[Rfam]
RNA sequence: GGUUUGUGAUGACACAGGACCUUGUCUUAACAUUAUGAUUUUGUAUUUUGAGCUUUAUGUGACACUGAAAUC
Numbered sequence: 001g002g003u004u005u006g007u008g009a010u011g012a013c014a015c016a017g018g019a020c021c022u023u024g025u026c027u028u029a030a031c032a033u034u035a036u037g038a039u040u041u042u043g044u045a046u047u048u049u050g051a052g053c054u055u056u057a058u059g060u061g062a063c064a065c066u067g068a069a070a071u072c
Base pairs, nucleotide, nucleotide: 001072002071003070004069
Dot-bracket structure: ((((................................................................))))
Notes
A member of the RNA family "Small nucleolar RNA SNORD107" from Heterocephalus glaber, 72 nucleotides long. Pairs were carried over by alignment from the consensus structure, which was predicted with WAR. The literature on the family includes a 2001 paper in Hum Mol Genet by Runte et al., "The IC-SNURF-SNRPN transcript serves as a host for multiple small nucleolar RNA species and as an antisense RNA for UBE3A". It scores 69 bits against the family's covariance model. Lineage of the source: Eukaryota > Eumetazoa > Gnathostomata > Mammalia > Heterocephalus.